[Rfam]
RNA: SAH (S-adenosyl-L-homocysteine) riboswitch aptamer
Organism: Ottowia oryzae
RNA sequence: UUCCCCGAGGGGCGUUGCAGCGCCGGGUGCCGCACAGGCAGCCACGGCGUGAGGCUCGGGAACGCAUUUCGCAACGACGCUCACCCACU
Dot-bracket structure: .(.(((((............(((((...................)))))......))))).)...........................
Numbered sequence: 001u002u003c004c005c006c007g008a009g010g011g012g013c014g015u016u017g018c019a020g021c022g023c024c025g026g027g028u029g030c031c032g033c034a035c036a037g038g039c040a041g042c043c044a045c046g047g048c049g050u051g052a053g054g055c056u057c058g059g060g061a062a063c064g065c066a067u068u069u070c071g072c073a074a075c076g077a078c079g080c081u082c083a084c085c086c087a088c089u
Stems, first nucleotide, its partner, number of pairs: 002062001004060005021049005